[Rfam]
RNA: mir-26 microRNA precursor family
Organism: Pogona vitticeps
RNA sequence: CUACCCCCCAGUGCAAGUAAUCAAGGAUAGGCCAUUAAGAAGGCACACAGCCUAUCCUGGAUUACUUGAACCGGGUCACAG
Numbered sequence: 001c002u003a004c005c006c007c008c009c010a011g012u013g014c015a016a017g018u019a020a021u022c023a024a025g026g027a028u029a030g031g032c033c034a035u036u037a038a039g040a041a042g043g044c045a046c047a048c049a050g051c052c053u054a055u056c057c058u059g060g061a062u063u064a065c066u067u068g069a070a071c072c073g074g075g076u077c078a079c080a081g
Stems, first nucleotide, its partner, number of pairs: 002080001007075003011071002014068009024058009